Shown here is a 381-nucleotide RNA from Sphaceloma murrayae, a member of the family "Nuclear RNase P". The literature on the family includes a 2002 paper in Annu Rev Biochem by Xiao et al., "Eukaryotic Ribonuclease P: A Plurality of Ribonucleoprotein Enzymes". The source organism's lineage runs through Eukaryota, Opisthokonta, Dikarya, saccharomyceta and Sphaceloma. The family's RNA type in Rfam is ribozyme. Rfam 15.1 lists 3,848 matches to the family in 1,862 species.
RNA sequence: ACCAACGCUGCGUUUCUUUGCUCCCAAACAGACAGAGUCCCUUCUCCGUCCUCCAGAAAGCAAAUGAGAAAUUCGGAGUAAUCUUCACUACUCGCCACCCCUUUGCCUCGCGCACUGGGCUCUGGCAACUGCGGGUGACCGCCCUUCGCGAACGCGAACGCAUCCGGCAUCAGAAAAUCAGGGCGUGAUGGUUCCCCCGCGUGGGGUCAUGUGGUCCUAUGGGAGCUGGUGCGAAGAUUGUAUUCGUCACCAACUGGGGCGAGAUACUUUAGUGCAAUACGCGGCGUGCCGGAGAUGAUUCGUCGUUUUCUCCUCCUGGGGAGACCUGGGAGGGAUUCUGGCGGAGAUUCGAUGGUUCCAUUCGAUUCCGAUUACUCUGGU
Numbered sequence: 001a002c003c004a005a006c007g008c009u010g011c012g013u014u015u016c017u018u019u020g021c022u023c024c025c026a027a028a029c030a031g032a033c034a035g036a037g038u039c040c041c042u043u044c045u046c047c048g049u050c051c052u053c054c055a056g057a058a059a060g061c062a063a064a065u066g067a068g069a070a071a072u073u074c075g076g077a078g079u080a081a082u083c084u085u086c087a088c089u090a091c092u093c094g095c096c097a098c099c100c101c102u103u104u105g106c107c108u109c110g111c112g113c114a115c116u117g118g119g120c121u122c123u124g125g126c127a128a129c130u131g132c133g134g135g136u137g138a139c140c141g142c143c144c145u146u147c148g149c150g151a152a153c154g155c156g157a158a159c160g161c162a163u164c165c166g167g168c169a170u171c172a173g174a175a176a177a178u179c180a181g182g183g184c185g186u187g188a189u190g191g192u193u194c195c196c197c198c199g200c201g202u203g204g205g206g207u208c209a210u211g212u213g214g215u216c217c218u219a220u221g222g223g224a225g226c227u228g229g230u231g232c233g234a235a236g237a238u239u240g241u242a243u244u245c246g247u248c249a250c251c252a253a254c255u256g257g258g259g260c261g262a263g264a265u266a267c268u269u270u271a272g273u274g275c276a277a278u279a280c281g282c283g284g285c286g287u288g289c290c291g292g293a294g295a296u297g298a299u300u301c302g303u304c305g306u307u308u309u310c311u312c313c314u315c316c317u318g319g320g321g322a323g324a325c326c327u328g329g330g331a332g333g334g335a336u337u338c339u340g341g342c343g344g345a346g347a348u349u350c351g352a353u354g355g356u357u358c359c360a361u362u363c364g365a366u367u368c369c370g371a372u373u374a375c376u377c378u379g380g381u
Stems, first nucleotide, its partner, number of pairs: 002380003007285007017064004031050003035046002074370005083236004131142004145158005160232005166226001180218005286358001288356004
Dot-bracket structure: .(((..(((((((...((((..........(((.((........)).)))..........)))).........[[[[[....((((............................................((((....))))..(((((....))))).(((((.(.............(((((.............................))))).......).)))))))))..........................................)))))))(.((((.............................................................)))).).......]]]]].......))).